Background
A member of the RNA family "Stem loopII regulatory element in POLB" from Tupaia belangeri, 82 nucleotides long. Gene Ontology term of the family: regulation of RNA stability. On this family, see Sarnowska et al., Nucleic Acids Res 2007: "Hairpin structure within the 3'UTR of DNA polymerase beta mRNA acts as a post-transcriptional regulatory element and interacts with Hax-1". The organism belongs to Tupaia belangeri, within Eukaryota. A search with the family's covariance model found it, with a score of 55 bits.
RNA sequence: AGCCCAAUGGUAUUCUUAACUUAUUUCUGAAUCUCUGAUACUUAAGGGUCUUCGGUGUUUUUAAAUAAUUAUUUUUGGGGGA
Numbered sequence: 001a002g003c004c005c006a007a008u009g010g011u012a013u014u015c016u017u018a019a020c021u022u023a024u025u026u027c028u029g030a031a032u033c034u035c036u037g038a039u040a041c042u043u044a045a046g047g048g049u050c051u052u053c054g055g056u057g058u059u060u061u062u063a064a065a066u067a068a069u070u071a072u073u074u075u076u077g078g079g080g081g082a
Stems, first nucleotide, its partner, number of pairs: 011077002016064004025055002031049004036044003